Small nucleolar RNA U61: an 87-nucleotide RNA from Ensete ventricosum. The match comes from Rfam's covariance-model search (58 bits). The family has 8 seed sequences and 401 matches in Rfam 15.1. Gene Ontology terms of the family: nucleolus and RNA processing. The organism belongs to Ensete, within Eukaryota. The family is grouped with related families in Rfam's "SNORD61 clan".
RNA sequence: UGGCUAUGAAGAAACCCAAACUGCUUGCCGGAGAUGGAUCCGUCCAUCGGUGACGGCGACGCAAACCCUCUAAGAAGUUCCGAGCCG
Numbered sequence: 001u002g003g004c005u006a007u008g009a010a011g012a013a014a015c016c017c018a019a020a021c022u023g024c025u026u027g028c029c030g031g032a033g034a035u036g037g038a039u040c041c042g043u044c045c046a047u048c049g050g051u052g053a054c055g056g057c058g059a060c061g062c063a064a065a066c067c068c069u070c071u072a073a074g075a076a077g078u079u080c081c082g083a084g085c086c087g
Base pairs, nucleotide, nucleotide: 001087002086003085004084